About this RNA
Rfam assigns this 72-nucleotide sequence from Portunus trituberculatus to the family "mir-71 microRNA precursor family". The match comes from Rfam's covariance-model search (51 bits). The literature on the family includes a 2009 paper in BMC Genomics by Li et al., "Direct sequencing and expression analysis of a large number of miRNAs in Aedes aegypti and a multi-species survey of novel mosquito miRNAs". The organism belongs to Portunus, within Eukaryota.

RNA sequence: CCCCCGUGAAAGACAAGAUAGUGAGAUGUUGCAAUAAUCGUACAUCUCACUACCCAUGUCUUUCACGGCGAC
Number, nucleotide and partner (000 for none) at each position: 001c000002c000003c000004c000005c000006g000007u000008g064009a063010a062011a061012g060013a059014c058015a057016a000017g054018a000019u000020a051021g050022u049023g048024a047025g046026a045027u044028g043029u000030u000031g000032c000033a000034a000035u000036a000037a000038u000039c000040g000041u000042a000043c028044a027045u026046c025047u024048c023049a022050c021051u020052a000053c000054c017055c000056a000057u015058g014059u013060c012061u011062u010063u009064c008065a000066c000067g000068g000069c000070g000071a000072c000